[Rfam]
RNA sequence: GCACCAGCCAGCGUUGAGUUGCAAGACUGGAGGUGAAGUCUCAAAA
Numbered sequence: 001g002c003a004c005c006a007g008c009c010a011g012c013g014u015u016g017a018g019u020u021g022c023a024a025g026a027c028u029g030g031a032g033g034u035g036a037a038g039u040c041u042c043a044a045a046a
Stems, first nucleotide, its partner, number of pairs: 004032001008030002011028001012025001014044005
RNA: Exoribonuclease-resistant RNA (xrRNA) plant-infecting virus (class 3)